[Rfam]
RNA sequence: AAUCAAAUAGGCGAUGGAGUUCGCCCUAACCGUCCGUGCGACUAAUGACUCCUACCAGCGA
Numbered sequence: 001a002a003u004c005a006a007a008u009a010g011g012c013g014a015u016g017g018a019g020u021u022c023g024c025c026c027u028a029a030c031c032g033u034c035c036g037u038g039c040g041a042c043u044a045a046u047g048a049c050u051c052c053u054a055c056c057a058g059c060g061a
Stems, first nucleotide, its partner, number of pairs: 010025004016052006032042003